[Rfam]
RNA sequence: AGUGUCAGCUGAAUCAGAGAUUGGCUGACAUAAAUUUAACCUUUAAUAUUUAGGAAGAGACUAUGUCUCUGAAUGCAGAAACUAAAGCAACAAUUGUUGCUGACUAUGCACAAGGAACU
Numbered sequence: 001a002g003u004g005u006c007a008g009c010u011g012a013a014u015c016a017g018a019g020a021u022u023g024g025c026u027g028a029c030a031u032a033a034a035u036u037u038a039a040c041c042u043u044u045a046a047u048a049u050u051u052a053g054g055a056a057g058a059g060a061c062u063a064u065g066u067c068u069c070u071g072a073a074u075g076c077a078g079a080a081a082c083u084a085a086a087g088c089a090a091c092a093a094u095u096g097u098u099g100c101u102g103a104c105u106a107u108g109c110a111c112a113a114g115g116a117a118c119u
Stems, first nucleotide, its partner, number of pairs: 007026006049073006

Shown here is a 119-nucleotide sequence from Candidatus Enterovibrio altilux, a member of the family "Ribosomal S15 leader". The literature on the family includes a 1996 paper in Biochimie by Benard et al., "Pseudoknot and translational control in the expression of the S15 ribosomal protein". Pairs were carried over by alignment from the consensus structure, which is taken from published work. The E. coli Ribosomal S15 gene 5' UTR can form two alternative structures. One that is a series of three hairpins, The other includes a pseudoknot. This structure causes translational regulation of the S15 protein.